[Rfam]
RNA sequence: GGGGUACAUGUAAAAAACCUCUACGUGGUGUACCCCAGGCAACGUUUCUAACGGCUAAUUUUUCCAA
Number, nucleotide and partner (000 for none) at each position: 001g036002g035003g034004g033005u032006a031007c030008a000009u000010g000011u000012a000013a000014a000015a000016a000017a029018c028019c027020u000021c000022u000023a000024c000025g000026u000027g019028g018029u017030g007031u006032a005033c004034c003035c002036c001037a000038g000039g000040c000041a000042a000043c053044g052045u051046u050047u000048c000049u000050a046051a045052c044053g043054g000055c000056u000057a000058a000059u000060u000061u000062u000063u000064c000065c000066a000067a000
RNA: HDV ribozyme from F. prausnitzii